RNA: Group II catalytic intron D1-D4-2
RNA sequence: GAGGGUAGGCCCCUCGCAGCCGGCUUACAGGAGCAGGCUUCAAACCGCCUCAAGCUGCUGUGGCCAAAAGCCAUUACAAGAUAUAGUGUUGACGGGAUUGCAAGAUUUUCAUUAAAAUAUUGAAAUUGGGG
Number, nucleotide and partner (000 for none) at each position: 001g015002a014003g013004g012005g011006u000007a000008g000009g000010c000011c005012c004013c003014u002015c001016g041017c000018a039019g038020c037021c036022g000023g034024c033025u032026u031027a000028c000029a000030g000031g026032a025033g024034c023035a000036g021037g020038c019039u018040u000041c016042a000043a000044a000045c131046c130047g000048c095049c094050u092051c091052a090053a089054g084055c000056u000057g000058c080059u079060g000061u073062g072063g071064c070065c000066a000067a000068a000069a000070g064071c063072c062073a061074u000075u000076a000077c000078a000079a059080g058081a000082u000083a000084u054085a000086g000087u000088g000089u053090u052091g051092a050093c000094g049095g048096g000097a000098u000099u000100g000101c000102a000103a000104g127105a126106u125107u124108u123109u122110c000111a000112u000113u000114a000115a000116a000117a000118u000119a000120u000121u000122g109123a108124a107125a106126u105127u104128g000129g000130g046131g045